[Rfam]
RNA sequence: AUGCUGACCCCAUGCCUGCUGACGUUGUCAGCGACAUGCCAGGCAACCAUCGGUCUUCGAGGUUGCGCGCAGUUCCCACUGUGUGACCGAGCCAGCUCGCACCGCAUCCAUCCGCGAGCGGCCACCAGUCUCUGGUGGCGGAUGC
Numbered sequence: 001a002u003g004c005u006g007a008c009c010c011c012a013u014g015c016c017u018g019c020u021g022a023c024g025u026u027g028u029c030a031g032c033g034a035c036a037u038g039c040c041a042g043g044c045a046a047c048c049a050u051c052g053g054u055c056u057u058c059g060a061g062g063u064u065g066c067g068c069g070c071a072g073u074u075c076c077c078a079c080u081g082u083g084u085g086a087c088c089g090a091g092c093c094a095g096c097u098c099g100c101a102c103c104g105c106a107u108c109c110a111u112c113c114g115c116g117a118g119c120g121g122c123c124a125c126c127a128g129u130c131u132c133u134g135g136u137g138g139c140g141g142a143u144g145c
Stems, first nucleotide, its partner, number of pairs: 011038004015033001018032006043066006052088004067084007114145003121139008
The record is a 145-nucleotide RNA sequence from Nitrosovibrio sp. Nv17, which matches "radC RNA" in Rfam.